[Rfam]
Rfam assigns this 80-nucleotide sequence from Triticum aestivum to the family "Small nucleolar RNA Z155". The source organism's lineage runs through Eukaryota, Euphyllophyta, Mesangiospermae, Petrosaviidae and Triticum. The family's RNA type in Rfam is C/D-box small nucleolar RNA. Rfam 15.1 lists 429 matches to the family in 196 species. A reference for the family is Chen et al. (2003), "The high diversity of snoRNAs in plants: identification and comparative study of 120 snoRNA genes from Oryza sativa", Nucleic Acids Res.
RNA sequence: GGUUGAUGUGAUGAUAAUCUUUCACAGAAAAAUCAUGUUUAGUGUUGACCAAAUUACAGACUACAAUUAUCUGAUCAACU
Dot-bracket structure: ((((((....................................................................))))))